RNA: RtT RNA
Organism: Salmonella enterica
RNA sequence: UUGCUAUCUGCGAUAUGGAAGAUUCGAACCUGCCGCAGGUUCGGGUCUCACGUAGUGAGACAACGGAGCCGCUUGCGGCGACGGCCCGAAGGGCGAGCAAAGCGAGUCAUCCUGCACGACCCACCA
Numbered sequence: 001u002u003g004c005u006a007u008c009u010g011c012g013a014u015a016u017g018g019a020a021g022a023u024u025c026g027a028a029c030c031u032g033c034c035g036c037a038g039g040u041u042c043g044g045g046u047c048u049c050a051c052g053u054a055g056u057g058a059g060a061c062a063a064c065g066g067a068g069c070c071g072c073u074u075g076c077g078g079c080g081a082c083g084g085c086c087c088g089a090a091g092g093g094c095g096a097g098c099a100a101a102g103c104g105a106g107u108c109a110u111c112c113u114g115c116a117c118g119a120c121c122c123a124c125c126a
Stems, first nucleotide, its partner, number of pairs: 016116002019113001021111001023109001033093002040090004047057001064083002070080003